[Rfam]
RNA sequence: UCCAAUCACCAGGGGCGUCCCGACAAGGGGCUGAGAUACUGCUUCGCCGCUGGAUUUGACCCGAAAGGCCAGAUCCCAACGCAGCGCAGGAACCCGAUGAACCUGAUCCAGCUCAUACUGGCGGAGGGACGGUGCGGAUGACGGCGU
Numbered sequence: 001u002c003c004a005a006u007c008a009c010c011a012g013g014g015g016c017g018u019c020c021c022g023a024c025a026a027g028g029g030g031c032u033g034a035g036a037u038a039c040u041g042c043u044u045c046g047c048c049g050c051u052g053g054a055u056u057u058g059a060c061c062c063g064a065a066a067g068g069c070c071a072g073a074u075c076c077c078a079a080c081g082c083a084g085c086g087c088a089g090g091a092a093c094c095c096g097a098u099g100a101a102c103c104u105g106a107u108c109c110a111g112c113u114c115a116u117a118c119u120g121g122c123g124g125a126g127g128g129a130c131g132g133u134g135c136g137g138a139u140g141a142c143g144g145c146g147u
Stems, first nucleotide, its partner, number of pairs: 007134004012095003016090001017031005039089003102127003108121004